[Rfam]
RNA sequence: GAGGGAAGAGGCCUUCUCUUCCUGUUUUUUUCUGAAGUCAUAAAAAGCUGGGAUGAGAGGGUGAAAAAAAUAAAUA
Numbered sequence: 001g002a003g004g005g006a007a008g009a010g011g012c013c014u015u016c017u018c019u020u021c022c023u024g025u026u027u028u029u030u031u032c033u034g035a036a037g038u039c040a041u042a043a044a045a046a047g048c049u050g051g052g053a054u055g056a057g058a059g060g061g062u063g064a065a066a067a068a069a070a071u072a073a074a075u076a
Stems, first nucleotide, its partner, number of pairs: 014059005021052004029044003033040002
mir-320 microRNA precursor family: a 76-nucleotide RNA from Microcebus murinus. Rfam 15.1 lists 659 matches to the family in 129 species. It scores 61 bits against the family's covariance model. Taxonomically the source falls in Microcebus (Eukaryota, Deuterostomia, Mammalia, Boreoeutheria). The family's consensus secondary structure was predicted with RNAalifold. Its family is annotated with positive regulation of stem cell proliferation, cellular response to glucose stimulus and negative regulation of gene expression in the Gene Ontology.